[Rfam]
RNA sequence: CGUGCGCUCCGGGGUCGGUGGAACUCCGAACCGGCGGUGAAAGUCCGCGAACCGGCUCGUCGUCGAGCCGGCCGAUCCGGUGGAACUCCGGGACCGACGGUCACAGUCCGGAUGAGAGGCGCGCACG
Numbered sequence: 001c002g003u004g005c006g007c008u009c010c011g012g013g014g015u016c017g018g019u020g021g022a023a024c025u026c027c028g029a030a031c032c033g034g035c036g037g038u039g040a041a042a043g044u045c046c047g048c049g050a051a052c053c054g055g056c057u058c059g060u061c062g063u064c065g066a067g068c069c070g071g072c073c074g075a076u077c078c079g080g081u082g083g084a085a086c087u088c089c090g091g092g093a094c095c096g097a098c099g100g101u102c103a104c105a106g107u108c109c110g111g112a113u114g115a116g117a118g119g120c121g122c123g124c125a126c127g
Stems, first nucleotide, its partner, number of pairs: 003125005009119002016028003030107002032096002034048004043094002052071002076092005098110003
Shown here is a 127-nucleotide sequence from Saccharopolyspora rhizosphaerae, a member of the family "FMN riboswitch aptamer (RFN element)". The base pairs follow the family's consensus structure, which is taken from published work. The match comes from Rfam's covariance-model search (92 bits).